[Rfam]
RNA sequence: GGGGGUGAAACGGUCUCGACGGGGGUCGCCGAGGGCGUGGCUGCGCGCCGAGGUGCGGGUGGCCUCGUAAAAACCCGCAACGGCAUAACUGCCAACACCAACUACGCUCUCGCGGCUUAAUGACCGCGACCUCGCCCGGUAGCCCUGCCGGGGGCUCACCGGAAGCGGGGACACAAACCCGGCUAGCCCGGGGCCACGCCCUCUAACCCCGGGCGAAGCUUGAAGGGGGCUCGCUCCUGGCCGCCCGUCCGCGGGCCAAGCCAGGAGGACACGCGAAACGCGGACUACGCGCGUAGAGGCCCGCCGUAGGGACCUUCGGACGGGGGUUCGACUCCCCCCACCUCCACCA
Numbered sequence: 001g002g003g004g005g006u007g008a009a010a011c012g013g014u015c016u017c018g019a020c021g022g023g024g025g026u027c028g029c030c031g032a033g034g035g036c037g038u039g040g041c042u043g044c045g046c047g048c049c050g051a052g053g054u055g056c057g058g059g060u061g062g063c064c065u066c067g068u069a070a071a072a073a074c075c076c077g078c079a080a081c082g083g084c085a086u087a088a089c090u091g092c093c094a095a096c097a098c099c100a101a102c103u104a105c106g107c108u109c110u111c112g113c114g115g116c117u118u119a120a121u122g123a124c125c126g127c128g129a130c131c132u133c134g135c136c137c138g139g140u141a142g143c144c145c146u147g148c149c150g151g152g153g154g155c156u157c158a159c160c161g162g163a164a165g166c167g168g169g170g171a172c173a174c175a176a177a178c179c180c181g182g183c184u185a186g187c188c189c190g191g192g193g194c195c196a197c198g199c200c201c202u203c204u205a206a207c208c209c210c211g212g213g214c215g216a217a218g219c220u221u222g223a224a225g226g227g228g229g230c231u232c233g234c235u236c237c238u239g240g241c242c243g244c245c246c247g248u249c250c251g252c253g254g255g256c257c258a259a260g261c262c263a264g265g266a267g268g269a270c271a272c273g274c275g276a277a278a279c280g281c282g283g284a285c286u287a288c289g290c291g292c293g294u295a296g297a298g299g300c301c302c303g304c305c306g307u308a309g310g311g312a313c314c315u316u317c318g319g320a321c322g323g324g325g326g327u328u329c330g331a332c333u334c335c336c337c338c339c340a341c342c343u344c345c346a347c348c349a
Stems, first nucleotide, its partner, number of pairs: 001345007020318008032307001034305004039301004044293005049067005055078006110129006130170005136162003141156003147183006186214006198230006234267006243256003247285003252280002322338005

transfer-messenger RNA: a 349-nucleotide RNA from Thermus thermophilus. On this family, see Zwieb et al., Nucleic Acids Res 2003: "tmRDB (tmRNA database)". Rfam's curators put it in the seed alignment. About the family: Bacterial tmRNA, also known as 10Sa RNA or SsrA, is named for its dual tRNA and mRNA-like properties. Its role is to liberate the mRNA from a stalled ribosome. To accomplish this part of the tmRNA is used as a reading frame that ends in a translation stop signal.